[Rfam]
RNA sequence: GAGUUUAGCGGCUAGGGUUCCGGCGUUUCAUGACGUGGCUGGUCCGAGAGCUGCUACCGGCGGGGAGACAGUCCGCCGGGUGCACGGCGGGAUAAAAGCCCGGGAGAC
Numbered sequence: 001g002a003g004u005u006u007a008g009c010g011g012c013u014a015g016g017g018u019u020c021c022g023g024c025g026u027u028u029c030a031u032g033a034c035g036u037g038g039c040u041g042g043u044c045c046g047a048g049a050g051c052u053g054c055u056a057c058c059g060g061c062g063g064g065g066a067g068a069c070a071g072u073c074c075g076c077c078g079g080g081u082g083c084a085c086g087g088c089g090g091g092a093u094a095a096a097a098g099c100c101c102g103g104g105a106g107a108c
Base pairs, nucleotide, nucleotide: 007055008054009053010052011051012050015045016044020042021041022039023036024035025034026033027032056081057080058078059077060076061075062074063073083103085106089101090100091099